A member of the RNA family "c-di-AMP riboswitch aptamer (ydaO/yuaA leader)" from Mesobacillus selenatarsenatis, 142 nucleotides long. It scores 90 bits against the family's covariance model. The source organism's lineage runs through Bacteria, Bacillati, Bacillota, Bacillaceae and Mesobacillus selenatarsenatis. Rfam links the family to the GO terms regulation of gene expression and cyclic-di-AMP binding.
[Rfam]
RNA sequence: AUUUCUAAAUCGCUGAAUCCGUUUGGAACGGGGGAACCAACUUUGUGGAGGCAAUCCACUUGGGGUGAGGCCUAAUAAUAGGCGGGGCUAUUCUGAGCCCUAAUCCGACAGCUAACUCCGUAAGCGUUGCAGAAGAGGAAGA
Numbered sequence: 001a002u003u004u005c006u007a008a009a010u011c012g013c014u015g016a017a018u019c020c021g022u023u024u025g026g027a028a029c030g031g032g033g034g035a036a037c038c039a040a041c042u043u044u045g046u047g048g049a050g051g052c053a054a055u056c057c058a059c060u061u062g063g064g065g066u067g068a069g070g071c072c073u074a075a076u077a078a079u080a081g082g083c084g085g086g087g088c089u090a091u092u093c094u095g096a097g098c099c100c101u102a103a104u105c106c107g108a109c110a111g112c113u114a115a116c117u118c119c120g121u122a123a124g125c126g127u128u129g130c131a132g133a134a135g136a137g138g139a140a141g142a
Stems, first nucleotide, its partner, number of pairs: 011126004018027003028121006038062002063106003071082004085100004